[Rfam]
RNA sequence: CCAGCUCAAAGGCCACGAAUGCUCAUCACGUACAGAUUGCUUCAUGCAUCCACAUUUCUGAGCGGGCUAAGGUCUGAGUAUUUUAAUCCCCCUCGAUCGGCUCUAGCAGAGCCCGGCUGUAAUCAGCUGCGCGACGUACCAGAAAGGCAGCUUCAUUUUCACAUCCCCAAGAUCCUGUCAUGGCAGAGGAGGGCGAGAAUGAGAGGCUUUGAAAGCGUUGUGGGGAUCGGGCAAACUUGUGUCCAUCGUGUAGCAGUCCUAUCGCGCGUGCGCCUGUCACAAUGGCGCUCAGGGACAUAGAGAAAUCUGAGCCAGAUACUCAAGUCCCCGGGCCUUUGCUGCGGUACAACAUUCCUUACAUCUAAAUCGCUAGGUGUCAUGUACAUACAUCGCUCCCAGGAUCAACCUCAGGGUGGUACAUGCAGACUGCAGUCGAGAUAUCCUCCCAUGGACAUGGUGGCUACCCGGGCAUCUCCGCUCGUAUGCUGCCAGCGUCUCCGCUCAUCUAGGUGAAUAACCGCUUACAGCUGGAGGUGACUACAUUACCAUGUCGUUACUUUCCUUGCGUAUGAGGGAUAUAUGCGAUGACACUGGUUUGUCCUUGAGUUCACUUCGUGGCUCGCGUAUCCUUCGUGGAUCGUGAAACUCGAUUCAGACUACUCUUGGGCUGG
Numbered sequence: 001c002c003a004g005c006u007c008a009a010a011g012g013c014c015a016c017g018a019a020u021g022c023u024c025a026u027c028a029c030g031u032a033c034a035g036a037u038u039g040c041u042u043c044a045u046g047c048a049u050c051c052a053c054a055u056u057u058c059u060g061a062g063c064g065g066g067c068u069a070a071g072g073u074c075u076g077a078g079u080a081u082u083u084u085a086a087u088c089c090c091c092c093u094c095g096a097u098c099g100g101c102u103c104u105a106g107c108a109g110a111g112c113c114c115g116g117c118u119g120u121a122a123u124c125a126g127c128u129g130c131g132c133g134a135c136g137u138a139c140c141a142g143a144a145a146g147g148c149a150g151c152u153u154c155a156u157u158u159u160c161a162c163a164u165c166c167c168c169a170a171g172a173u174c175c176u177g178u179c180a181u182g183g184c185a186g187a188g189g190a191g192g193g194c195g196a197g198a199a200u201g202a203g204a205g206g207c208u209u210u211g212a213a214a215g216c217g218u219u220g221u222g223g224g225g226a227u228c229g230g231g232c233a234a235a236c237u238u239g240u241g242u243c244c245a246u247c248g249u250g251u252a253g254c255a256g257u258c259c260u261a262u263c264g265c266g267c268g269u270g271c272g273c274c275u276g277u278c279a280c281a282a283u284g285g286c287g288c289u290c291a292g293g294g295a296c297a298u299a300g301a302g303a304a305a306u307c308u309g310a311g312c313c314a315g316a317u318a319c320u321c322a323a324g325u326c327c328c329c330g331g332g333c334c335u336u337u338g339c340u341g342c343g344g345u346a347c348a349a350c351a352u353u354c355c356u357u358a359c360a361u362c363u364a365a366a367u368c369g370c371u372a373g374g375u376g377u378c379a380u381g382u383a384c385a386u387a388c389a390u391c392g393c394u395c396c397c398a399g400g401a402u403c404a405a406c407c408u409c410a411g412g413g414u415g416g417u418a419c420a421u422g423c424a425g426a427c428u429g430c431a432g433u434c435g436a437g438a439u440a441u442c443c444u445c446c447c448a449u450g451g452a453c454a455u456g457g458u459g460g461c462u463a464c465c466c467g468g469g470c471a472u473c474u475c476c477g478c479u480c481g482u483a484u485g486c487u488g489c490c491a492g493c494g495u496c497u498c499c500g501c502u503c504a505u506c507u508a509g510g511u512g513a514a515u516a517a518c519c520g521c522u523u524a525c526a527g528c529u530g531g532a533g534g535u536g537a538c539u540a541c542a543u544u545a546c547c548a549u550g551u552c553g554u555u556a557c558u559u560u561c562c563u564u565g566c567g568u569a570u571g572a573g574g575g576a577u578a579u580a581u582g583c584g585a586u587g588a589c590a591c592u593g594g595u596u597u598g599u600c601c602u603u604g605a606g607u608u609c610a611c612u613u614c615g616u617g618g619c620u621c622g623c624g625u626a627u628c629c630u631u632c633g634u635g636g637a638u639c640g641u642g643a644a645a646c647u648c649g650a651u652u653c654a655g656a657c658u659a660c661u662c663u664u665g666g667g668c669u670g671g
Base pairs, nucleotide, nucleotide: 001671002670003669004668007665008664009663012619013618014617015616016615017614018613020064021063022062023061024060035050036049038048039047040046074655075654076653077652078651089225090224091223092222099113100112101111102110103109114129115128116127117126118125119124131221132220133219134218135217136216137215150207151206152205153204154203620643621642622641623640624639
RNA: Nuclear RNase P
Organism: Suillus discolor